[Rfam]
RNA sequence: CAACCCACACCCGUAGAUCCGAUCUUGUGUGUAAACUUCACUCGCAAGCUUGUGUCUGUGGGUCUGUGUCGA
Numbered sequence: 001c002a003a004c005c006c007a008c009a010c011c012c013g014u015a016g017a018u019c020c021g022a023u024c025u026u027g028u029g030u031g032u033a034a035a036c037u038u039c040a041c042u043c044g045c046a047a048g049c050u051u052g053u054g055u056c057u058g059u060g061g062g063u064c065u066g067u068g069u070c071g072a
Stems, first nucleotide, its partner, number of pairs: 003069002006066002010062003015057004020052003024048006